Record summary: Rfam assigns this 173-nucleotide sequence from Micromonospora sp. MH33 to the family "c-di-AMP riboswitch aptamer (ydaO/yuaA leader)". Lineage of the source: Bacteria > Actinomycetota > Actinomycetes > Micromonosporaceae > Micromonospora. A search with the family's covariance model found it, with a score of 57 bits.
RNA sequence: GGGCCGGUAACGCCUAAUCCCGCCACCGGCCCGGUGGUCCUGGACCUCGGGCGGGAGCGGGGGACCCACACGUUCCUCGGUGCACGACACCUCGGGGUGAAGCCGCCCUCCGGCGGCCGGGCUCCUCGGCCCGAACCCGACAGCUCACCUCGUCGGCGUGGAGGAAACCCACA
Numbered sequence: 001g002g003g004c005c006g007g008u009a010a011c012g013c014c015u016a017a018u019c020c021c022g023c024c025a026c027c028g029g030c031c032c033g034g035u036g037g038u039c040c041u042g043g044a045c046c047u048c049g050g051g052c053g054g055g056a057g058c059g060g061g062g063g064a065c066c067c068a069c070a071c072g073u074u075c076c077u078c079g080g081u082g083c084a085c086g087a088c089a090c091c092u093c094g095g096g097g098u099g100a101a102g103c104c105g106c107c108c109u110c111c112g113g114c115g116g117c118c119g120g121g122c123u124c125c126u127c128g129g130c131c132c133g134a135a136c137c138c139g140a141c142a143g144c145u146c147a148c149c150u151c152g153u154c155g156g157c158g159u160g161g162a163g164g165a166a167a168c169c170c171a172c173a
Stems, first nucleotide, its partner, number of pairs: 011158004018056007057153006067094001095138003103116004119132004
Dot-bracket structure: ..........((((...(((((((.........................)))))))((((((....(..........................)(((.....((((......))))..((((......))))...))).........)))))).))))...............